[Rfam]
RNA sequence: UUCUCACCACAGACUCGUGGACGGCUUGACACCAGCAUUUCCACUCCUCUUCGGGGGGGCCGGCAAAUAAUGGAGUCGCUGUUUCCAGUUUGACUUCGAGGAGCCAUCAAAUCCCCAUGAUGUCAAUUAUCUAGUCAACGGGUCUGAGAUCGAUUGAGCACCCUGCAAACCUCGAUGUUUUUGAGCCCCUUCACGGGGAGCUCGACGGAGAGAGUGGGGUGGCUUAAGUCACUAUAUUCCAAAUCUUUUCGCAGAUGCCGUCGGCAGGUGAUGCUAAAGACUCACCAUGGUGAAUACAGUU
Numbered sequence: 001u002u003c004u005c006a007c008c009a010c011a012g013a014c015u016c017g018u019g020g021a022c023g024g025c026u027u028g029a030c031a032c033c034a035g036c037a038u039u040u041c042c043a044c045u046c047c048u049c050u051u052c053g054g055g056g057g058g059g060c061c062g063g064c065a066a067a068u069a070a071u072g073g074a075g076u077c078g079c080u081g082u083u084u085c086c087a088g089u090u091u092g093a094c095u096u097c098g099a100g101g102a103g104c105c106a107u108c109a110a111a112u113c114c115c116c117a118u119g120a121u122g123u124c125a126a127u128u129a130u131c132u133a134g135u136c137a138a139c140g141g142g143u144c145u146g147a148g149a150u151c152g153a154u155u156g157a158g159c160a161c162c163c164u165g166c167a168a169a170c171c172u173c174g175a176u177g178u179u180u181u182u183g184a185g186c187c188c189c190u191u192c193a194c195g196g197g198g199a200g201c202u203c204g205a206c207g208g209a210g211a212g213a214g215u216g217g218g219g220u221g222g223c224u225u226a227a228g229u230c231a232c233u234a235u236a237u238u239c240c241a242a243a244u245c246u247u248u249u250c251g252c253a254g255a256u257g258c259c260g261u262c263g264g265c266a267g268g269u270g271a272u273g274c275u276a277a278a279g280a281c282u283c284a285c286c287a288u289g290g291u292g293a294a295u296a297c298a299g300u301u
Stems, first nucleotide, its partner, number of pairs: 011145008019086003022081003030075001032073003038066002041063002044058001046057004091137005100124002103121001105119001156223001161219006176207002179205002183203004188198001189196002229293007244280005251274003256266004
RNA: A. fumigatus sRNA Afu_309
Organism: Pseudogymnoascus sp. VKM F-4246